RNA: COG3860 RNA
Organism: Leeia aquatica
Nucleotides: 056
Base pairs, nucleotide, nucleotide: 002016003015004014029042030041031040032039
Number, partner (000 for none) and nucleotide at each position: 001000c002016g003015g004014u005000c006000g007000g008000c009000a010000g011000u012000u013000c014004a015003c016002c017000c018000a019000g020000g021000c022000a023000u024000c025000g026000c027000c028000g029042c030041u031040c032039c033000u034000g035000u036000c037000c038000a039032g040031g041030a042029g043000u044000g045000c046000u047000a048000a049000a050000c051000c052000u053000g054000c055000c056000c